A member of the RNA family "RNase E 5' UTR element" from Atlantibacter hermannii, 337 nucleotides long. The organism belongs to Atlantibacter hermannii, within Bacteria. The family's RNA type in Rfam is cis-regulatory element. Gene Ontology term of the family: regulation of gene expression. This family represents a conserved element found in the 5' UTR of RNase E mRNA. RNase E is a key regulatory enzyme in the pathway of mRNA degradation in E. coli that is able to auto-regulate the degradation of its own mRNA in response to changes in RNase E activity. This rne 5' UTR element acts as a sensor of cellular RNase E concentration enabling tight regulation of RNase E concentration and synthesis. The base pairs follow the family's consensus structure, which is taken from published work.
[Rfam]
RNA sequence: UUUUCCGUGUUAAAACUUGUUAAGACAAGGAACUUUGCGGAAUUACCAUUUUUGCCUGACCGUUCAUCCACGCAGCAAUGGCGUAAGACGUAUUGAACCAUCAGGCAGUUAGCGGGCUGCGGGUUGCAGUCCUUACCGGUAAGAUGGAAGCUUCUCUGGCGAAACAUUCCCAGGCAGUUCCCCUGAUAAUUGCGCUGUAUUUCCAGAUGAAAUACAGGCUACCGACACUCCGCGCCUCUUAAGCGAACGACAACCGUGAGGUUGGCGACGUGAACAGUCACGAGGCCAUCGGUUCAUACCCGGAAAGGCGUUAUCUUGCCCGCAGCUUAGUCGUCAA
Numbered sequence: 001u002u003u004u005c006c007g008u009g010u011u012a013a014a015a016c017u018u019g020u021u022a023a024g025a026c027a028a029g030g031a032a033c034u035u036u037g038c039g040g041a042a043u044u045a046c047c048a049u050u051u052u053u054g055c056c057u058g059a060c061c062g063u064u065c066a067u068c069c070a071c072g073c074a075g076c077a078a079u080g081g082c083g084u085a086a087g088a089c090g091u092a093u094u095g096a097a098c099c100a101u102c103a104g105g106c107a108g109u110u111a112g113c114g115g116g117c118u119g120c121g122g123g124u125u126g127c128a129g130u131c132c133u134u135a136c137c138g139g140u141a142a143g144a145u146g147g148a149a150g151c152u153u154c155u156c157u158g159g160c161g162a163a164a165c166a167u168u169c170c171c172a173g174g175c176a177g178u179u180c181c182c183c184u185g186a187u188a189a190u191u192g193c194g195c196u197g198u199a200u201u202u203c204c205a206g207a208u209g210a211a212a213u214a215c216a217g218g219c220u221a222c223c224g225a226c227a228c229u230c231c232g233c234g235c236c237u238c239u240u241a242a243g244c245g246a247a248c249g250a251c252a253a254c255c256g257u258g259a260g261g262u263u264g265g266c267g268a269c270g271u272g273a274a275c276a277g278u279c280a281c282g283a284g285g286c287c288a289u290c291g292g293u294u295c296a297u298a299c300c301c302g303g304a305a306a307g308g309c310g311u312u313a314u315c316u317u318g319c320c321c322g323c324a325g326c327u328u329a330g331u332c333g334u335c336a337a
Stems, first nucleotide, its partner, number of pairs: 003042006016029005052108008063097004070091003075082002114328011133306002136303004146182002149179002155174005192219002195217004200212004221293005234286005248267002251264005